Annotation:
SAM riboswitch aptamer (S box leader): a 101-nucleotide RNA from Pararcticibacter amylolyticus.
RNA sequence: CACUUAUCCAGAAAGACGGAGGGAUAGGCCCUGUGAAGUCUUAGCAACCUGUACCAGUACAAGGUGCUAAUUCCUGUCCGCUAAGGCGGAAAAGAUAAGUU
Numbered sequence: 001c002a003c004u005u006a007u008c009c010a011g012a013a014a015g016a017c018g019g020a021g022g023g024a025u026a027g028g029c030c031c032u033g034u035g036a037a038g039u040c041u042u043a044g045c046a047a048c049c050u051g052u053a054c055c056a057g058u059a060c061a062a063g064g065u066g067c068u069a070a071u072u073c074c075u076g077u078c079c080g081c082u083a084a085g086g087c088g089g090a091a092a093a094g095a096u097a098a099g100u101u
Base pairs, nucleotide, nucleotide: 002100003099004098005097006096007095008094013042014041015040016039017038021031022030023029025076026075027074028073043068044067045066046065048064049063050061051060052059053058072093077090078089079088080087081086
Dot-bracket structure: .(((((((....(((((...(((.[[[[)))......)))))((((.((((((....)))).))))))...(]]]](((((....)))))..)))))))).